[Rfam]
RNA: mir-1451 microRNA precursor family
Organism: Penelope pileata
RNA sequence: AGCGCAGGAGCUGCGGCCUCGCACAGGAGCAAGUUACCGCGUUCAGCUGGCCUGCCGUAACUUGCUGCUGUGAGAGGCGGCGGCUGCUGGCU
Numbered sequence: 001a002g003c004g005c006a007g008g009a010g011c012u013g014c015g016g017c018c019u020c021g022c023a024c025a026g027g028a029g030c031a032a033g034u035u036a037c038c039g040c041g042u043u044c045a046g047c048u049g050g051c052c053u054g055c056c057g058u059a060a061c062u063u064g065c066u067g068c069u070g071u072g073a074g075a076g077g078c079g080g081c082g083g084c085u086g087c088u089g090g091c092u
Base pairs, nucleotide, nucleotide: 001092002091003090005089006088007087009085010084011083012082013081014080016078017077018076019075020074022072023071024070025069026068028066029065030064031063032062033061034060035059036058037057039055040054041053